[Rfam]
RNA sequence: GAUUUUCAUUGGUGCAAAUCCAAUCUUGAAAUUUAAGAUGAGAAAAAAGUAUCCAUUGGUAGCAGAUGCUUAUCCAUUAAGCGGGGAAAAUAUUAU
Numbered sequence: 001g002a003u004u005u006u007c008a009u010u011g012g013u014g015c016a017a018a019u020c021c022a023a024u025c026u027u028g029a030a031a032u033u034u035a036a037g038a039u040g041a042g043a044a045a046a047a048a049g050u051a052u053c054c055a056u057u058g059g060u061a062g063c064a065g066a067u068g069c070u071u072a073u074c075c076a077u078u079a080a081g082c083g084g085g086g087a088a089a090a091u092a093u094u095a096u
Base pairs, nucleotide, nucleotide: 009023010022011021012020052085053084054083055077056076058074059073060072061071062070
RNA: Plastid-rps12 3UTR RNA